RNA sequence: GGGUGUCAGCUGCAUGUCGCAGCGGGCAGGUUCAUGCGUCGGUCGGGCCGCCACG
Numbered sequence: 001g002g003g004u005g006u007c008a009g010c011u012g013c014a015u016g017u018c019g020c021a022g023c024g025g026g027c028a029g030g031u032u033c034a035u036g037c038g039u040c041g042g043u044c045g046g047g048c049c050g051c052c053a054c055g
Stems, first nucleotide, its partner, number of pairs: 005027003009023004037055003041052003
The record is a 55-nucleotide RNA sequence, which matches "nhaA-I RNA" in Rfam. The family's RNA type in Rfam is riboswitch. Rfam describes the family as follows. Acidobacteria, Alphaproteobacteria, Betaproteobacteria and Gammaproteobacteria, Verrucomicrobia, cand. division NC10. The family's consensus secondary structure is taken from published work.